A member of the RNA family "Small nucleolar RNA SNORA29" from Erinaceus europaeus, 134 nucleotides long.
About the family: ACA29 is a member of the H/ACA class of snoRNA that guide the sites of modification of uridines to pseudouridines.
The match comes from Rfam's covariance-model search (87 bits).
The base pairs follow the family's consensus structure, which was predicted with PFOLD.
The source organism's lineage runs through Eukaryota, Eumetazoa, Deuterostomia, Eulipotyphla and Erinaceus.
RNA sequence: UCUCCCAUUUGACCACCACAUAUCCUCCUAAUAAUAGAUUUUAGUGGCUACGCUUAUGGAAUAGAUUGAUAUUGCUGUGAUCUGAAGAAGGAGAUUCUCAUGUCCUCUAACAGAAAACCAGUGCCUAGAACACU
Numbered sequence: 001u002c003u004c005c006c007a008u009u010u011g012a013c014c015a016c017c018a019c020a021u022a023u024c025c026u027c028c029u030a031a032u033a034a035u036a037g038a039u040u041u042u043a044g045u046g047g048c049u050a051c052g053c054u055u056a057u058g059g060a061a062u063a064g065a066u067u068g069a070u071a072u073u074g075c076u077g078u079g080a081u082c083u084g085a086a087g088a089a090g091g092a093g094a095u096u097c098u099c100a101u102g103u104c105c106u107c108u109a110a111c112a113g114a115a116a117a118c119c120a121g122u123g124c125c126u127a128g129a130a131c132a133c134u
Base pairs, nucleotide, nucleotide: 005059006058007057016047017046018045019044074122075121076120077119092108